[Rfam]
RNA sequence: AGGCUCCUGCUCGUGAUCGUCUUCUCAACCUUCACCGGGCAGGCGGAAAAGAGGACGGCCCCCGCGAUGACGUGAAUCGCGGGGGCCGUCU
Dot-bracket structure: .(...(((((((((((..((.......))..)))).))))))))........((((((((((((((((.......))))))))))))))))

Shown here is a 91-nucleotide RNA from Streptomyces vietnamensis, a member of the family "sodF sRNA". It is annotated as a small RNA. A reference for the family is Kim et al. (2014), "Inverse regulation of Fe- and Ni-containing SOD genes by a Fur family regulator Nur through small RNA processed from 3'UTR of the sodF mRNA", Nucleic Acids Res.